The record is a 69-nucleotide RNA from Allopusillimonas soli, which matches "Fluoride riboswitch aptamer (crcB RNA motif)" in Rfam.
[Rfam]
RNA sequence: CCUACAUGCGGAGAUGGCAUUCCCUCCCUAACCGCCGCGCUGUUCGCGGAUGAUGAUGCCUACAGGCCU
Numbered sequence: 001c002c003u004a005c006a007u008g009c010g011g012a013g014a015u016g017g018c019a020u021u022c023c024c025u026c027c028c029u030a031a032c033c034g035c036c037g038c039g040c041u042g043u044u045c046g047c048g049g050a051u052g053a054u055g056a057u058g059c060c061u062a063c064a065g066g067c068c069u
Base pairs, nucleotide, nucleotide: 010027011026012025013024016060017059018058019057020056021055035049036048037047038046039045